[Rfam]
Rfam assigns this 84-nucleotide sequence from Ammoniphilus oxalaticus to the family "c-di-GMP-I-GGC riboswitch aptamer".
RNA sequence: CCAGAAAGGGGCAAACCAACCGAAAGGUUGGGACGCAAAGUCACAAGUCUAAGGUUUUGUACUAGGACGGCUGGAUUACCUGGA
Numbered sequence: 001c002c003a004g005a006a007a008g009g010g011g012c013a014a015a016c017c018a019a020c021c022g023a024a025a026g027g028u029u030g031g032g033a034c035g036c037a038a039a040g041u042c043a044c045a046a047g048u049c050u051a052a053g054g055u056u057u058u059g060u061a062c063u064a065g066g067a068c069g070g071c072u073g074g075a076u077u078a079c080c081u082g083g084a
Stems, first nucleotide, its partner, number of pairs: 003081002011036002016031006034070001039077004044073002047068003

Background:
NCBI's taxonomy places the organism under Bacteria, Bacillati, Caryophanales, Paenibacillaceae, Ammoniphilus. It scores 60 bits against the family's covariance model.